[Rfam]
RNA sequence: GCAAUAGAAAGGCUGAUAUGGGCGGUCGGCUAAUCUCCCGGAAGGGAGGUGAUGCCUGUGGAGGUGUAUCAAGCGUUGUCCCUGAUGUUCAUGUUCGGCAUGUUCAUUCUGGCGCUGCUAAGUUACCUCAAAAAGAAAUAGACCGCCCCGACUAAGGAUAACGGUCUAUUUCUUGAGGCCUGCCUUAUAAGCCGCCGCCCUUAAAAGCGGCUAUUGCGCGGGGAGUCGUGUUGGAGCACGGCUC
Numbered sequence: 001g002c003a004a005u006a007g008a009a010a011g012g013c014u015g016a017u018a019u020g021g022g023c024g025g026u027c028g029g030c031u032a033a034u035c036u037c038c039c040g041g042a043a044g045g046g047a048g049g050u051g052a053u054g055c056c057u058g059u060g061g062a063g064g065u066g067u068a069u070c071a072a073g074c075g076u077u078g079u080c081c082c083u084g085a086u087g088u089u090c091a092u093g094u095u096c097g098g099c100a101u102g103u104u105c106a107u108u109c110u111g112g113c114g115c116u117g118c119u120a121a122g123u124u125a126c127c128u129c130a131a132a133a134a135g136a137a138a139u140a141g142a143c144c145g146c147c148c149c150g151a152c153u154a155a156g157g158a159u160a161a162c163g164g165u166c167u168a169u170u171u172c173u174u175g176a177g178g179c180c181u182g183c184c185u186u187a188u189a190a191g192c193c194g195c196c197g198c199c200c201u202u203a204a205a206a207g208c209g210g211c212u213a214u215u216g217c218g219c220g221g222g223g224a225g226u227c228g229u230g231u232u233g234g235a236g237c238a239c240g241g242c243u244c
Stems, first nucleotide, its partner, number of pairs: 001217004006212002011193004017151001021147002024143001026141001031052001033050001035048005060127002063124003073088003097119004195210004223244009
A member of the RNA family "BsrG" from Paenibacillus stellifer, 244 nucleotides long. Lineage of the source: Bacteria > Bacillati > Bacillota > Paenibacillaceae > Paenibacillus. Rfam 15.1 lists 614 matches to the family in 343 species. Pairs were carried over by alignment from the consensus structure, which was predicted with WAR. A search with the family's covariance model found it, with a score of 64 bits. On this family, see Muller et al., RNA Biol 2016: "A multistress responsive type I toxin-antitoxin system: bsrE/SR5 from the B. subtilis chromosome". By type it is a small RNA. Its family is annotated with autolysis and toxin activity in the Gene Ontology. bsrE, bsrG and bsrH pair through intermolecular interactions with antisense sRNAs. They form type I toxin/antitoxin system that includes an mRNA encoding for a short, toxic peptide (bsrE, bsrG and bsrH) and an antitoxin that is comprised of an antisense RNA. bsrG encodes a 39-amino-acid toxin, and the 180 nucleotide antisense sRNA called SR4 acts as the antitoxin (they overlap by 123 nucleotides). SR4 interaction with the 3'UTR of bsrG RNA promotes bsrG degradation and inhibits its translation.